[Rfam]
RNA sequence: GGGUCGCCACAACGGCUUCCUGGCGUGGCGCCUAUUUUUUGGGUUAAUGGAGCA
Numbered sequence: 001g002g003g004u005c006g007c008c009a010c011a012a013c014g015g016c017u018u019c020c021u022g023g024c025g026u027g028g029c030g031c032c033u034a035u036u037u038u039u040u041g042g043g044u045u046a047a048u049g050g051a052g053c054a
Stems, first nucleotide, its partner, number of pairs: 005030006013022002015053003019050002
The record is a 54-nucleotide RNA sequence from Pukyongiella litopenaei, which matches "SAM/SAH riboswitch aptamer" in Rfam. Gene Ontology terms of the family: regulation of gene expression and S-adenosylmethionine metabolic process. The match comes from Rfam's covariance-model search (45 bits). A reference for the family is Weickhmann et al. (2019), "The structure of the SAM/SAH-binding riboswitch", Nucleic Acids Res.